Rfam assigns this 117-nucleotide RNA from Tieghemiomyces parasiticus to the family "U5 spliceosomal RNA". It scores 74 bits against the family's covariance model. U5 RNA is a component of both types of known spliceosome. Gene Ontology terms of the family: U5 snRNP and spliceosomal tri-snRNP complex assembly. The organism belongs to Tieghemiomyces, within Eukaryota.

RNA sequence: AUCCUGGUGCUCACCAUACUCAUCGGAUAAUUCUUUCGCCUUUUACUAAAGAAUUCCGUUUGGUGGGCACACUCUCAGCAGGAUGAGACAAUUUUUCACCUGACUACUUCUCGUUUG
Number, nucleotide and partner (000 for none) at each position: 001a000002u000003c082004c081005u080006g079007g000008u069009g068010c067011u066012c065013a064014c063015c062016a061017u000018a059019c000020u000021c000022a000023u000024c000025g000026g000027a000028u000029a055030a054031u053032u052033c051034u050035u049036u048037c000038g000039c000040c000041u000042u000043u000044u000045a000046c000047u000048a036049a035050a034051g033052a032053a031054u030055u029056c000057c000058g000059u018060u000061u016062g015063g014064u013065g012066g011067g010068c009069a008070c000071a000072c000073u000074c000075u000076c000077a000078g000079c006080a005081g004082g003083a000084u000085g000086a000087g000088a000089c000090a000091a000092u000093u000094u000095u000096u000097c000098a000099c117100c000101u000102g115103a114104c113105u000106a111107c000108u000109u000110c000111u106112c000113g104114u103115u102116u000117g099